The record is a 154-nucleotide RNA from Gossypium australe, which matches "MIR7502 microRNA precursor family" in Rfam.
[Rfam]
RNA sequence: UGUUAAAAGCUUAUCUAUUUCUACUGUUUAAAAGUUAAUGUGGCUGACAAAAUUACCCGACAGUUACAAGUGAUUACAACUGAUGUGCCAUCUGUACUUCAUUCUAACCUACAUGGAUCAGUUUUUAGUAGUAGAAUUGAUGAAAUUUUUAACA
Dot-bracket structure: .((((((((.(((((...(((((((.((.(((((((...................................................................................))))))))).)))))))..)))).).)))))))).

Its family is annotated with miRNA-mediated post-transcriptional gene silencing and RISC complex in the Gene Ontology. A search with the family's covariance model found it, with a score of 73 bits. Lineage of the source: Eukaryota > Viridiplantae > Magnoliopsida > Malvales > Gossypium.